[Rfam]
RNA sequence: UGGUGGCACCAACCGGGACUAAAGGGGUGCAUUGGUACCGGUUCGUGGCACCAACUGGGACCAAUGCCCCCCUUUAGUCCUGGUUGGUGCCACGAA
Numbered sequence: 001u002g003g004u005g006g007c008a009c010c011a012a013c014c015g016g017g018a019c020u021a022a023a024g025g026g027g028u029g030c031a032u033u034g035g036u037a038c039c040g041g042u043u044c045g046u047g048g049c050a051c052c053a054a055c056u057g058g059g060a061c062c063a064a065u066g067c068c069c070c071c072c073u074u075u076a077g078u079c080c081u082g083g084u085u086g087g088u089g090c091c092a093c094g095a096a
Base pairs, nucleotide, nucleotide: 003093004092005091006090007089008088009087010086011085012084013083014082015081016080017079018078019077020076021075022074023073024072025071026070027069029067030066034062035061036060038058039057045051046050
This 96-nucleotide RNA sequence from Triticum turgidum belongs to the Rfam family "MIR5387 microRNA precursor family". The source organism's lineage runs through Eukaryota, Poaceae, Pooideae, Triticodae and Triticum turgidum. Gene Ontology terms of the family: miRNA-mediated post-transcriptional gene silencing and RISC complex.